[Rfam]
RNA sequence: CUCGUUCAACCCUUAUAACAAGGGUCGGAAGUAGGCACCUGCCGAAGGAACGCUUU
Numbered sequence: 001c002u003c004g005u006u007c008a009a010c011c012c013u014u015a016u017a018a019c020a021a022g023g024g025u026c027g028g029a030a031g032u033a034g035g036c037a038c039c040u041g042c043c044g045a046a047g048g049a050a051c052g053c054u055u056u
Stems, first nucleotide, its partner, number of pairs: 003052005009025005028053001034043003